[Rfam]
RNA sequence: CCAAAAUUUUAGGGUAAGAUUUGUGAAGAAAGAGCUCUUAUAUAAAAGUUUUUAUGCUUAUAUUUAAGUUUUUUUUCACAAAUUUUAAGCUAAGAUUUGG
Number, nucleotide and partner (000 for none) at each position: 001c100002c099003a098004a097005a096006a000007u094008u093009u092010u000011a000012g091013g090014g000015u087016a086017a085018g084019a083020u082021u081022u080023g079024u078025g077026a076027a075028g074029a000030a073031a072032g071033a070034g069035c068036u067037c000038u000039u000040a063041u062042a061043u060044a059045a058046a000047a000048g000049u000050u000051u000052u000053u000054a000055u000056g000057c000058u045059u044060a043061u042062a041063u040064u000065u000066a000067a036068g035069u034070u033071u032072u031073u030074u028075u027076u026077c025078a024079c023080a022081a021082a020083u019084u018085u017086u016087a015088a000089g000090c013091u012092a009093a008094g007095a000096u005097u004098u003099g002100g001